[Rfam]
RNA sequence: UUUGGCAUUGGGUUUACGGGUGACGAUACCGUUACCCACCGCAUGCAGUAGAUGGGUUUUACCCAGUCCGGUUCCACCGUA
Numbered sequence: 001u002u003u004g005g006c007a008u009u010g011g012g013u014u015u016a017c018g019g020g021u022g023a024c025g026a027u028a029c030c031g032u033u034a035c036c037c038a039c040c041g042c043a044u045g046c047a048g049u050a051g052a053u054g055g056g057u058u059u060u061a062c063c064c065a066g067u068c069c070g071g072u073u074c075c076a077c078c079g080u081a
Stems, first nucleotide, its partner, number of pairs: 005042002009038005016032003020029002051078001053076002056074001061072003
Dot-bracket structure: ....((..(((((..(((.((......))))).)))))..))........(.((.(....(((......))).))).)...

The record is an 81-nucleotide RNA from Prodigiosinella confusarubida, which matches "antisense RNA of dnaA mRNA" in Rfam. Lineage of the source: Bacteria > Pseudomonadati > Pseudomonadota > Gammaproteobacteria > Prodigiosinella. Gene Ontology term of the family: regulation of mRNA stability. A search with the family's covariance model found it, with a score of 76 bits. For this family Rfam cites "Identification and characterization of a cis-encoded antisense RNA associated with the replication process of Salmonella enterica serovar Typhi" (Dadzie et al., PLoS One, 2013).